[Rfam]
RNA: mir-16 microRNA precursor family
Organism: Takifugu flavidus
RNA sequence: GCCACAGUGAAGCAGCACUGCUAAUAUUGGGGUUGAGGUCUGACAUUACACACCAAUAUUUACGUGCUGCUAAAGCGUGGC
Numbered sequence: 001g002c003c004a005c006a007g008u009g010a011a012g013c014a015g016c017a018c019u020g021c022u023a024a025u026a027u028u029g030g031g032g033u034u035g036a037g038g039u040c041u042g043a044c045a046u047u048a049c050a051c052a053c054c055a056a057u058a059u060u061u062a063c064g065u066g067c068u069g070c071u072a073a074a075g076c077g078u079g080g081c
Stems, first nucleotide, its partner, number of pairs: 001081003005077001011071008023060008